[Rfam]
RNA sequence: UAGAACAAAUGUGAAAGGGCUGAUGGAUGAACUAUGAUUAACUAAUCUAUAUUUUAUUUGAAACGAAUAAGUUCGUACUUUAAAAUAUAGGAUUAGUCUAUUCAUUUUUAUAAAUCAGUUUAUGCCUUAUUAAAUAUGAGUGUAUGACUAAUCCUUCCAAUUAAAAAUGGGGAGGAUUUUUUG
Numbered sequence: 001u002a003g004a005a006c007a008a009a010u011g012u013g014a015a016a017g018g019g020c021u022g023a024u025g026g027a028u029g030a031a032c033u034a035u036g037a038u039u040a041a042c043u044a045a046u047c048u049a050u051a052u053u054u055u056a057u058u059u060g061a062a063a064c065g066a067a068u069a070a071g072u073u074c075g076u077a078c079u080u081u082a083a084a085a086u087a088u089a090g091g092a093u094u095a096g097u098c099u100a101u102u103c104a105u106u107u108u109u110a111u112a113a114a115u116c117a118g119u120u121u122a123u124g125c126c127u128u129a130u131u132a133a134a135u136a137u138g139a140g141u142g143u144a145u146g147a148c149u150a151a152u153c154c155u156u157c158c159a160a161u162u163a164a165a166a167a168u169g170g171g172g173a174g175g176a177u178u179u180u181u182u183g
Stems, first nucleotide, its partner, number of pairs: 016109003024104004031097002043095006049088006059075004117131003150178009160168001
Rfam assigns this 183-nucleotide RNA sequence from Mesobacillus zeae to the family "Bacillus sRNA ncr1575". The family's RNA type in Rfam is small RNA. For this family Rfam cites "Identification of regulatory RNAs in Bacillus subtilis" (Irnov et al., Nucleic Acids Res, 2010). Lineage of the source: Bacteria > Bacillota > Bacilli > Caryophanales > Mesobacillus.